Rfam assigns this 94-nucleotide RNA from Microbacterium sp. RG1 to the family "Glycine riboswitch aptamer".
Rfam 15.1 lists 9,425 matches to the family in 5,228 species.

RNA sequence: GCGACUCUGAAAAGCGAUCCUCGCGGAUCCGCCGACGGUGAAAGAUCGCGCUCCGCGUGUUCGAAACUCUCAGGCCCAUGACAGAGGGGGAGUU
Dot-bracket structure: .(..(((((......((((......)))).(((((..(.(...((...............))....).))).)))......)))))..).....